Shown here is a 139-nucleotide RNA sequence from Marinibacterium profundimaris, a member of the family "L2-Alphaproteobacteria ribosomal protein leader".
[Rfam]
RNA sequence: GGGGACCUUCGGGGCCCUAUAACCAUGGGCCCAGUGCGCACCUUCCGGUGUUCACACCACCAGGGGCCCCAAACAUAGCGGCGGGCAAACUCGUCGCGGUCGGGGCCAGGCCCUGACCUUGCUAAACGGAAGACAGAAA
Numbered sequence: 001g002g003g004g005a006c007c008u009u010c011g012g013g014g015c016c017c018u019a020u021a022a023c024c025a026u027g028g029g030c031c032c033a034g035u036g037c038g039c040a041c042c043u044u045c046c047g048g049u050g051u052u053c054a055c056a057c058c059a060c061c062a063g064g065g066g067c068c069c070c071a072a073a074c075a076u077a078g079c080g081g082c083g084g085g086c087a088a089a090c091u092c093g094u095c096g097c098g099g100u101c102g103g104g105g106c107c108a109g110g111c112c113c114u115g116a117c118c119u120u121g122c123u124a125a126a127c128g129g130a131a132g133a134c135a136g137a138a139a
Stems, first nucleotide, its partner, number of pairs: 001018004006014003027113004
It scores 52 bits against the family's covariance model. By type it is a cis-regulatory leader.